This 79-nucleotide sequence from Acidithiobacillus ferrianus belongs to the Rfam family "Group II catalytic intron D1-D4-1". Gene Ontology term of the family: Group II intron splicing. NCBI's taxonomy places the organism under Bacteria, Pseudomonadati, Acidithiobacillia, Acidithiobacillaceae, Acidithiobacillus.
RNA sequence: CUGGGCGUUUGGAAACGAACGCUGAAUACCGUGGAGAAGUCAGCAGAGGGCAUAGUAAGCGGCGCCCCCGCUGAAGGCC
Number, nucleotide and partner (000 for none) at each position: 001c000002u026003g000004g023005g022006c021007g020008u019009u018010u017011g016012g000013a000014a000015a000016c011017g010018a009019a008020c007021g006022c005023u004024g000025a000026a002027u000028a000029c000030c000031g000032u000033g000034g000035a000036g000037a000038a000039g000040u047041c046042a000043g000044c000045a000046g041047a040048g000049g079050g078051c077052a000053u000054a000055g000056u000057a000058a072059g071060c070061g069062g068063c000064g000065c000066c000067c000068c062069c061070g060071c059072u058073g000074a000075a000076g000077g051078c050079c049
The match comes from Rfam's covariance-model search (59 bits).